[Rfam]
The family of this 283-nucleotide sequence from Nannospalax galili is "Mason-Pfizer monkey virus packaging signal".

RNA sequence: UGGCACCCAAUGUGGGGCUGGAUACUGGGGGACAAUGUGAGGGACACGACGCAGUAAAGAAGGGGUGUGCACCCGCUCAAACAAUAGUUCAGAGACGUCGCGGUAGCCUGCUGUGACCGAGCCGACAGGUAAGUUGGUCGUGCAAUUUAAAUUAUGGGGCAAGCAUUGAGUCAGCAUCAGAAAUAUGUGAUACAGUUAAGAGAAGCGUUACAGGCAAGAGGAGUAAAGGUUACAACUGAGGAUUUAUUUCACUUCUUUGAUUUUAUAAAAGACAUCUGCCCAU
Numbered sequence: 001u002g003g004c005a006c007c008c009a010a011u012g013u014g015g016g017g018c019u020g021g022a023u024a025c026u027g028g029g030g031g032a033c034a035a036u037g038u039g040a041g042g043g044a045c046a047c048g049a050c051g052c053a054g055u056a057a058a059g060a061a062g063g064g065g066u067g068u069g070c071a072c073c074c075g076c077u078c079a080a081a082c083a084a085u086a087g088u089u090c091a092g093a094g095a096c097g098u099c100g101c102g103g104u105a106g107c108c109u110g111c112u113g114u115g116a117c118c119g120a121g122c123c124g125a126c127a128g129g130u131a132a133g134u135u136g137g138u139c140g141u142g143c144a145a146u147u148u149a150a151a152u153u154a155u156g157g158g159g160c161a162a163g164c165a166u167u168g169a170g171u172c173a174g175c176a177u178c179a180g181a182a183a184u185a186u187g188u189g190a191u192a193c194a195g196u197u198a199a200g201a202g203a204a205g206c207g208u209u210a211c212a213g214g215c216a217a218g219a220g221g222a223g224u225a226a227a228g229g230u231u232a233c234a235a236c237u238g239a240g241g242a243u244u245u246a247u248u249u250c251a252c253u254u255c256u257u258u259g260a261u262u263u264u265a266u267a268a269a270a271g272a273c274a275u276c277u278g279c280c281c282a283u
Stems, first nucleotide, its partner, number of pairs: 006030003012025003036048003086134001088132001090129001096119002099115005141161003146158004167210003170206002218258006227245005268283001271280001273278001

Rfam classes the family as a cis-regulatory element. It scores 144 bits against the family's covariance model. A reference for the family is Mustafa et al. (2004), "Mutational analysis of the predicted secondary RNA structure of the Mason-Pfizer monkey virus packaging signal", Virus Res. Rfam describes the family as follows. This family represents a group of sequences that are related to the Mason-Pfizer monkey virus (MPMV) packaging signal. The packaging signal is located in the 5' UTR and is required for specific RNA encapsidation.